[Rfam]
RNA sequence: GCCGGCCAGGGCUCGGUGGGCAGCACAAACUUUUAUCAAGUGGUGGCGCCAUCGGGACCUUUAGGGAAACCAAAGCGUUUGGGU
Numbered sequence: 001g002c003c004g005g006c007c008a009g010g011g012c013u014c015g016g017u018g019g020g021c022a023g024c025a026c027a028a029a030c031u032u033u034u035a036u037c038a039a040g041u042g043g044u045g046g047c048g049c050c051a052u053c054g055g056g057a058c059c060u061u062u063a064g065g066g067a068a069a070c071c072a073a074a075g076c077g078u079u080u081g082g083g084u
Base pairs, nucleotide, nucleotide: 001084002083003082005076006075008060009059010058013055014054015053016052017051018050019049021048023047024046064071065070
The family of this 84-nucleotide part of an RNA from Salpingoeca rosetta is "Eukaryotic small subunit ribosomal RNA". Clan: SSU clan.